[Rfam]
RNA sequence: UUUUAAAAGUCUUUCCGAGCCAUUGCAGCCUAAGAAGGGAAACCCAGUCGUUCUUUAGGUUUUCCUUUAUGGUGCUAUGGCCGAUAGGGUGCAGUUUGCGGGAAACCGCUGUGCCUCCCGCUUUGGAAAGGAAGGACGGCAUAAAAGGG
Numbered sequence: 001u002u003u004u005a006a007a008a009g010u011c012u013u014u015c016c017g018a019g020c021c022a023u024u025g026c027a028g029c030c031u032a033a034g035a036a037g038g039g040a041a042a043c044c045c046a047g048u049c050g051u052u053c054u055u056u057a058g059g060u061u062u063u064c065c066u067u068u069a070u071g072g073u074g075c076u077a078u079g080g081c082c083g084a085u086a087g088g089g090u091g092c093a094g095u096u097u098g099c100g101g102g103a104a105a106c107c108g109c110u111g112u113g114c115c116u117c118c119c120g121c122u123u124u125g126g127a128a129a130g131g132a133a134g135g136a137c138g139g140c141a142u143a144a145a146a147g148g149g
Stems, first nucleotide, its partner, number of pairs: 003143001011135006019081005025075002028073003034068011087116008099108003117126002

A member of the RNA family "Molybdenum/Tungsten riboswitch aptamer (Moco RNA motif)" from Caldicoprobacter faecalis, 149 nucleotides long. The source organism's lineage runs through Bacteria, Bacillota, Caldicoprobacterales, Caldicoprobacteraceae and Caldicoprobacter. It scores 61 bits against the family's covariance model.